[Rfam]
RNA sequence: GCAUGCUAAUUCUUGGCACUGGGAGAAUUCACAGUUGACUUUUACAAUACUCUGUGGUUCUUUGGGUGCCAAAACUUAGUGUGU
Numbered sequence: 001g002c003a004u005g006c007u008a009a010u011u012c013u014u015g016g017c018a019c020u021g022g023g024a025g026a027a028u029u030c031a032c033a034g035u036u037g038a039c040u041u042u043u044a045c046a047a048u049a050c051u052c053u054g055u056g057g058u059u060c061u062u063u064g065g066g067u068g069c070c071a072a073a074a075c076u077u078a079g080u081g082u083g084u
Base pairs, nucleotide, nucleotide: 003082004081005080006079007078008077009076013072014071015070016069017068018067020065022063023061025060026059027058029057030056031055032054033053034052
mir-263 microRNA precursor family: an 84-nucleotide RNA from Bactrocera dorsalis. Lineage of the source: Eukaryota > Endopterygota > Brachycera > Cyclorrhapha > Bactrocera dorsalis complex.